RNA sequence: AUACUUACCUGGCAGGGGAGAUAUCAUGAUCACAAAGGGGAUUUUUCCAGGGCGAAGCUUCUCCUUUGCACUCCGGAUGUGCUGACUCCUGCAAUUUCCCCAAAUGUGGGAAACUCAAGUAAACAAUUUGUGGUAGUGGGGAACUGCGUUUGCACUCUUCCCUG
Numbered sequence: 001a002u003a004c005u006u007a008c009c010u011g012g013c014a015g016g017g018g019a020g021a022u023a024u025c026a027u028g029a030u031c032a033c034a035a036a037g038g039g040g041a042u043u044u045u046u047c048c049a050g051g052g053c054g055a056a057g058c059u060u061c062u063c064c065u066u067u068g069c070a071c072u073c074c075g076g077a078u079g080u081g082c083u084g085a086c087u088c089c090u091g092c093a094a095u096u097u098c099c100c101c102a103a104a105u106g107u108g109g110g111a112a113a114c115u116c117a118a119g120u121a122a123a124c125a126a127u128u129u130g131u132g133g134u135a136g137u138g139g140g141g142a143a144c145u146g147c148g149u150u151u152g153c154a155c156u157c158u159u160c161c162c163u164g
Base pairs, nucleotide, nucleotide: 014120016048017047018046019045020044021043023042024041025040027038049090050089051088052087054086056083057082058081060079062077063076064075094115095113096112097111099109100108138163139162140161141160142159143158146155148153

Annotation
U1 spliceosomal RNA: a 164-nucleotide RNA from Theropithecus gelada. Gene Ontology terms of the family: U1 snRNP, mRNA 5'-splice site recognition and pre-mRNA 5'-splice site binding. The family's RNA type in Rfam is spliceosomal small nuclear RNA. From the family's description: U1 is a small nuclear RNA (snRNA) component of the spliceosome (involved in pre-mRNA splicing). Its Rfam clan is "U1 clan".